[Rfam]
RNA: mir-548 microRNA precursor family
RNA sequence: UAUUAGGUUGGGGCAAAAGUAAUUGCAGUUUUUGCCAUUGAAAGCAAUGGCAAAAACUGCAAUUACUUUUAUGCCAACCUAAUA
Dot-bracket structure: (((((((((((.(.((((((((((((((((((((((((((....)))))))))))))))))))))))))).).)))))))))))